RNA sequence: AGUAAUAGAAUAGGAAUCUCAAGGGUGGUCAGCUCAUCCCCGCAUGAAGGGGGGUGGUGCUGUGACGGUGUUCGAAGCAUUAAUGUUUGCGUGUACCUUUGCAAGCUUAAUCAUUGCCAUUCUGUCUUUUAACCACAGAAAAUAAUCCACCCUUGAGCUUGGCCGCUUAGGUGGAUUAUUCCCAAGAAUAAGCUGUCCCCCUUGUAGGGAACAUUCUAUUGCACUGGCCGCGUGGUGUUCCAGCACCACCG
Numbered sequence: 001a002g003u004a005a006u007a008g009a010a011u012a013g014g015a016a017u018c019u020c021a022a023g024g025g026u027g028g029u030c031a032g033c034u035c036a037u038c039c040c041c042g043c044a045u046g047a048a049g050g051g052g053g054g055u056g057g058u059g060c061u062g063u064g065a066c067g068g069u070g071u072u073c074g075a076a077g078c079a080u081u082a083a084u085g086u087u088u089g090c091g092u093g094u095a096c097c098u099u100u101g102c103a104a105g106c107u108u109a110a111u112c113a114u115u116g117c118c119a120u121u122c123u124g125u126c127u128u129u130u131a132a133c134c135a136c137a138g139a140a141a142a143u144a145a146u147c148c149a150c151c152c153u154u155g156a157g158c159u160u161g162g163c164c165g166c167u168u169a170g171g172u173g174g175a176u177u178a179u180u181c182c183c184a185a186g187a188a189u190a191a192g193c194u195g196u197c198c199c200c201c202u203u204g205u206a207g208g209g210a211a212c213a214u215u216c217u218a219u220u221g222c223a224c225u226g227g228c229c230g231c232g233u234g235g236u237g238u239u240c241c242a243g244c245a246c247c248a249c250c251g
Base pairs, nucleotide, nucleotide: 002222003221004220005219007217008216009215011213016196017195018157019156020155021154022153023152024151025150027147028146029145034057035056036055038053039052040051041050064126065125066124067123068122070120077092078091101117102116103115160184161183162182198209199208200207229251230250232249233248234247235246236245237244238243
Notes: A member of the RNA family "BsrG" from Mesobacillus campisalis, 251 nucleotides long. bsrE, bsrG and bsrH pair through intermolecular interactions with antisense sRNAs. By type it is a small RNA. The organism belongs to Mesobacillus, within Bacteria. Gene Ontology terms of the family: autolysis and toxin activity.